A member of the RNA family "MIR5565 microRNA precursor family" from Miscanthus lutarioriparius, 108 nucleotides long.
Gene Ontology terms of the family: RISC complex and miRNA-mediated post-transcriptional gene silencing.

Nucleotides: 108
Base pairs, nucleotide, nucleotide: 004107006105007104008103009102010101012099013098016095017094018093019092020091021090022089023088024087025086026085027084028083029082030081031080032079035076036075037074038073039072041070042069043068046065047064
Number, partner (000 for none) and nucleotide at each position: 001000g002000c003000a004107u005000u006105u007104g008103u009102a010101u011000c012099c013098a014000c015000u016095u017094u018093g019092a020091u021090c022089c023088a024087c025086a026085u027084g028083u029082g030081u031080u032079g033000g034000a035076g036075u037074g038073g039072a040000a041070u042069g043068g044000a045000a046065u047064g048000a049000a050000a051000u052000u053000u054000a055000g056000u057000u058000c059000a060000u061000u062000u063000c064047c065046a066000c067000u068043c069042c070041a071000a072039u073038c074037c075036a076035c077000u078000u079032c080031a081030a082029c083028a084027c085026a086025u087024g088023u089022g090021g091020a092019u093018u094017g095016a096000g097000a098013u099012g100000a101010a102009u103008a104007c105006a106000u107004g108000c

Lineage of the source: Eukaryota > Streptophyta > Liliopsida > Panicoideae > Miscanthus.